[Rfam]
RNA sequence: CACGCAUGCUGGAGCUCCGCAGCGGCGCCGGGGACUUAAGUCCAAACUUGGGUCCCGCACCGUGACCAACCCGGAGCUUAA
Numbered sequence: 001c002a003c004g005c006a007u008g009c010u011g012g013a014g015c016u017c018c019g020c021a022g023c024g025g026c027g028c029c030g031g032g033g034a035c036u037u038a039a040g041u042c043c044a045a046a047c048u049u050g051g052g053u054c055c056c057g058c059a060c061c062g063u064g065a066c067c068a069a070c071c072c073g074g075a076g077c078u079u080a081a
Stems, first nucleotide, its partner, number of pairs: 012079008023062003030056004035050001
ybhL leader: an 81-nucleotide sequence from Rhizobium oryziradicis. Rfam describes the family as follows. This family is a putative regulatory RNA structure that is found upstream of an uncharacterized membrane protein in alpha-proteobacteria. The match comes from Rfam's covariance-model search (59 bits). By type it is a cis-regulatory leader. A reference for the family is Corbino et al. (2005), "Evidence for a second class of S-adenosylmethionine riboswitches and other regulatory RNA motifs in alpha-proteobacteria", Genome Biol. Gene Ontology term of the family: regulation of gene expression.